[Rfam]
Nucleotides: 077
Base pairs, nucleotide, nucleotide: 015044016043017042021077022076023075024074026072027071028040029039049066050065051064052063053062054061055060
Number, partner (000 for none) and nucleotide at each position: 001000a002000g003000u004000c005000a006000a007000a008000a009000g010000u011000u012000c013000a014000a015044g016043a017042c018000c019000a020000c021077a022076g023075c024074a025000a026072a027071a028040g029039c030000u031000c032000u033000c034000a035000c036000a037000g038000u039029g040028u041000a042017g043016u044015c045000c046000u047000g048000u049066c050065a051064g052063a053062u054061u055060u056000c057000a058000a059000u060055g061054a062053a063052u064051c065050u066049g067000a068000a069000a070000a071027u072026u073000c074024u075023g076022u077021u
Shown here is a 77-nucleotide RNA sequence from Crocodylus porosus, a member of the family "Mammalian CPEB3 ribozyme". The mammalian CPEB3 ribozyme is a self cleaving RNA located in the second intron of the CPEB3 gene which belongs to a family of genes regulating messenger RNA polyadenylation. NCBI's taxonomy places the organism under Eukaryota, Metazoa, Amniota, Longirostres, Crocodylus.